RNA sequence: GUACGUGUGCGGCGAUGCCGCCGCGUCACCAUUCUCCUCUUGUCGUUGUUGCUCCGGGGCCCAUAGCCCCGGUUUUUUUUG
Numbered sequence: 001g002u003a004c005g006u007g008u009g010c011g012g013c014g015a016u017g018c019c020g021c022c023g024c025g026u027c028a029c030c031a032u033u034c035u036c037c038u039c040u041u042g043u044c045g046u047u048g049u050u051g052c053u054c055c056g057g058g059g060c061c062c063a064u065a066g067c068c069c070c071g072g073u074u075u076u077u078u079u080u081g
Base pairs, nucleotide, nucleotide: 001029002028003026004025005024006023007022009021010020011019012018013017054072055071056070057069058068059067060066

Description:
A member of the RNA family "Burkholderia sRNA 16 (Bc_KC_sr1)" from Paraburkholderia phymatum, 81 nucleotides long. It is annotated as a small RNA. Identified by RNA-seq, RACE and Northern blot. Strongly expressed in biofilm. Also know as Bc_KC_sr1. The base pairs follow the family's consensus structure, which was predicted with RNAfold. It is one of the family's seed sequences. Lineage of the source: Bacteria > Pseudomonadati > Betaproteobacteria > Burkholderiales > Paraburkholderia phymatum.